[Rfam]
RNA sequence: GGUCAUGAGUUCCGGCCCACAGCCCUGGCUGGCCGGACGGCAACCCUCCGGUGGUGGUGGGGUGCCCCAGGUGAGGACCCGGCGGGAUCGCCCUGAUCCCGCAAGCACCCGUC
Dot-bracket structure: ((((....(.((((((....((......)).)))))))(((..(((.((......))..))).))).........))))..(((((((((...)))))))))...........